[Rfam]
RNA sequence: GGUUUUGACCCAGUAUCUCGAGGUACUACUGGCGUCCGACCUACCAGCAGUGGUUGCGUCGAAAACCUGAAUUUUUGGAUCGCCUUUCCGGGGUUAUCCGGGAAGGCA
Numbered sequence: 001g002g003u004u005u006u007g008a009c010c011c012a013g014u015a016u017c018u019c020g021a022g023g024u025a026c027u028a029c030u031g032g033c034g035u036c037c038g039a040c041c042u043a044c045c046a047g048c049a050g051u052g053g054u055u056g057c058g059u060c061g062a063a064a065a066c067c068u069g070a071a072u073u074u075u076u077g078g079a080u081c082g083c084c085u086u087u088c089c090g091g092g093g094u095u096a097u098c099c100g101g102g103a104a105g106g107c108a
Stems, first nucleotide, its partner, number of pairs: 007036002009032002013029002016025001018023001037061004041056001043054003084106006092099002
A member of the RNA family "SL2 RNA" from Ancylostoma ceylanicum, 108 nucleotides long. The family is grouped with related families in Rfam's "SL clan". Gene Ontology term of the family: mRNA trans splicing, via spliceosome. By type it is a non-coding RNA gene. The match comes from Rfam's covariance-model search (55 bits). Rfam's curators write: This family represents SL2 RNA. SL2 RNA is involved in trans splicing in lower eukaryotes. Trans-splicing is a form of RNA processing. The organism belongs to Ancylostoma, within Eukaryota.